[Rfam]
Shown here is a 90-nucleotide RNA from Acidithiobacillus sulfuriphilus, a member of the family "t44 RNA".
RNA sequence: GGCUUUAACGCUCAAAUCCACACACUUGUCGGCACAUGGGGCCGGGUGUCCGCAAGGAUGGCUCACAUGGGACAAGUGGCGGUCGACAAC
Numbered sequence: 001g002g003c004u005u006u007a008a009c010g011c012u013c014a015a016a017u018c019c020a021c022a023c024a025c026u027u028g029u030c031g032g033c034a035c036a037u038g039g040g041g042c043c044g045g046g047u048g049u050c051c052g053c054a055a056g057g058a059u060g061g062c063u064c065a066c067a068u069g070g071g072a073c074a075a076g077u078g079g080c081g082g083u084c085g086a087c088a089a090c
Base pairs, nucleotide, nucleotide: 023078024077025076026075027074028073029072030071035069036068037067038066040063041062042061043060048059049058050057051056

NCBI's taxonomy places the organism under Bacteria, Pseudomonadati, Acidithiobacillia, Acidithiobacillaceae, Acidithiobacillus. On this family, see Tjaden et al., Nucleic Acids Res 2002: "Transcriptome analysis of Escherichia coli using high-density oligonucleotide probe arrays". The family's RNA type in Rfam is small RNA.